[Rfam]
RNA: RNase MRP
Organism: Monascus purpureus
RNA sequence: UCCUCGCUCAAAGAAUCGCAUUCAAAGCUCACACACAGAGUUCUAAACUCUUUCUCAUAUGCUUUGGGAGAAAGUCCCCGGACACCCUGCCCAAAUAGAUUAUUUCCUUUCGGGGGGAUAAUUAUUUGGUCUACUUGUCAGGCAAUGCGGAAACGCGCCGCCAUAAAAGCAGUUUGAUAGCGGCUUACCUGCCCCUCCUACCCCUUCCUUUCCGGUCUGUUACCCGACGCCGCAAGGUGGAAACAAUGGUGGUAUCAGCUGAGAGGAGGGGGGUGUAAUUGGGGUUGCUUUUCGUCGUGGUUGGAUAGUCAUGCGAUUGCCCUUGUAUCUUUUGGUAUAUGGGUAACUCAAUGGGGCUCAUUCUUGAGGCGAGG
Number, nucleotide and partner (000 for none) at each position: 001u000002c374003c373004u372005c371006g370007c369008u367009c366010a365011a364012a000013g000014a318015a317016u316017c315018g314019c313020a000021u000022u068023c066024a065025a064026a063027g062028c061029u000030c000031a000032c000033a000034c000035a000036c000037a051038g050039a049040g048041u047042u046043c000044u000045a000046a042047a041048c040049u039050c038051u037052u000053u000054c000055u000056c000057a000058u000059a000060u000061g028062c027063u026064u025065u024066g023067g000068g022069a000070g000071a000072a000073a358074g357075u000076c356077c355078c354079c353080g000081g000082a000083c000084a000085c000086c000087c000088u000089g000090c000091c000092c000093a000094a104095a103096u102097a101098g000099a000100u000101u097102a096103u095104u094105u000106c000107c000108u000109u000110u000111c000112g000113g000114g000115g000116g000117g000118a000119u000120a000121a000122u000123u000124a000125u000126u000127u000128g000129g000130u000131c000132u000133a000134c000135u000136u000137g000138u000139c000140a000141g000142g000143c000144a000145a000146u000147g000148c000149g000150g000151a000152a000153a000154c000155g000156c000157g000158c000159c000160g000161c000162c000163a000164u000165a000166a000167a000168a000169g184170c183171a000172g181173u180174u179175u000176g000177a000178u000179a174180g173181c172182g000183g170184c169185u000186u277187a276188c275189c000190u000191g000192c273193c272194c271195c270196u269197c268198c000199u000200a000201c266202c265203c000204c263205u000206u000207c000208c000209u000210u000211u000212c000213c000214g000215g000216u000217c000218u000219g000220u000221u000222a000223c000224c000225c000226g000227a000228c000229g000230c000231c000232g000233c000234a000235a000236g000237g000238u000239g000240g000241a000242a000243a000244c000245a000246a000247u000248g000249g259250u258251g000252g256253u000254a000255u000256c252257a000258g250259c249260u000261g000262a000263g204264a000265g202266g201267a000268g197269g196270g195271g194272g193273g192274u000275g188276u187277a186278a000279u000280u000281g000282g000283g000284g000285u000286u000287g000288c000289u000290u000291u000292u000293c000294g000295u000296c000297g000298u000299g000300g000301u000302u000303g000304g000305a000306u000307a000308g000309u000310c000311a000312u000313g019314c018315g017316a016317u015318u014319g000320c343321c342322c341323u000324u339325g338326u337327a336328u335329c000330u000331u000332u000333u000334g000335g328336u327337a326338u325339a324340u000341g322342g321343g320344u000345a000346a000347c000348u000349c000350a000351a000352u000353g079354g078355g077356g076357c074358u073359c000360a000361u000362u000363c000364u011365u010366g009367a008368g000369g007370c006371g005372a004373g003374g002